[Rfam]
RNA sequence: UUUGGAUCAAUGAUGAUUAGUUUAAUUACUGCAUUAUCUUUCUAGAAUACCCAAUUUAUAUAGGAUUGAAGAAGAUUUUUCUAAUUGAGAUCCAAU
Numbered sequence: 001u002u003u004g005g006a007u008c009a010a011u012g013a014u015g016a017u018u019a020g021u022u023u024a025a026u027u028a029c030u031g032c033a034u035u036a037u038c039u040u041u042c043u044a045g046a047a048u049a050c051c052c053a054a055u056u057u058a059u060a061u062a063g064g065a066u067u068g069a070a071g072a073a074g075a076u077u078u079u080u081c082u083a084a085u086u087g088a089g090a091u092c093c094a095a096u
Base pairs, nucleotide, nucleotide: 002095003094004093005092006091007090

A member of the RNA family "Small nucleolar RNA snoR27" from Capsicum baccatum, 96 nucleotides long.
The family has 6 seed sequences and 649 matches in Rfam 15.1.
The organism belongs to Capsicum, within Eukaryota.
The family's consensus secondary structure was predicted with WAR.
A search with the family's covariance model found it, with a score of 56 bits.